The record is a 98-nucleotide sequence from Spiroplasma apis, which matches "Bacterial small signal recognition particle RNA" in Rfam. Its Rfam clan is "SRP clan". Pairs were carried over by alignment from the consensus structure, which is taken from published work. The source organism's lineage runs through Bacteria, Mycoplasmatota, Entomoplasmatales, Spiroplasmataceae and Spiroplasma apis. It scores 52 bits against the family's covariance model. From the family's description: The signal recognition particle (SRP) is a universally conserved ribonucleoprotein involved in the co-translational targeting of proteins to membranes. The family's RNA type in Rfam is non-coding RNA gene.
RNA sequence: UAAAAUUGUCAUUGUAAGGGUGACGUUCGAAGUUGGUCAGGAUCGGAAGAUAGCAGCCAUAAGAAUCUAGUGCCUUGUACAUUGACUUUUUUUAUCUC
Number, nucleotide and partner (000 for none) at each position: 001u000002a000003a000004a092005a091006u000007u000008g088009u085010c084011a083012u000013u081014g080015u077016a000017a076018g075019g074020g073021u072022g071023a068024c000025g066026u065027u064028c063029g000030a000031a000032g000033u000034u059035g058036g057037u056038c000039a000040g000041g000042a051043u050044c049045g000046g000047a000048a000049g044050a043051u042052a000053g000054c000055a000056g037057c036058c035059a034060u000061a000062a000063g028064a027065a026066u025067c000068u023069a000070g000071u022072g021073c020074c019075u018076u017077g015078u000079a000080c014081a013082u000083u011084g010085a009086c000087u000088u008089u000090u000091u005092u004093u000094a000095u000096c000097u000098c000